Overview: Rfam assigns this 59-nucleotide RNA sequence from Caenorhabditis japonica to the family "mir-360 microRNA precursor family".
[Rfam]
RNA sequence: UUGUGACCGUUGUUACGGUCAAAACAUUCCUGGAAAUGACCGUAGUUUCGUUCACAAAA
Numbered sequence: 001u002u003g004u005g006a007c008c009g010u011u012g013u014u015a016c017g018g019u020c021a022a023a024a025c026a027u028u029c030c031u032g033g034a035a036a037u038g039a040c041c042g043u044a045g046u047u048u049c050g051u052u053c054a055c056a057a058a059a
Base pairs, nucleotide, nucleotide: 001057002056003055004054005053006052008050009049012046013045014044015043016042017041018040019039020038021037

Background: Rfam links the family to the GO terms RISC complex and miRNA-mediated post-transcriptional gene silencing. A reference for the family is Ohler et al. (2004), "Patterns of flanking sequence conservation and a characteristic upstream motif for microRNA gene identification", RNA. Pairs were carried over by alignment from the consensus structure, which was predicted with RNAalifold.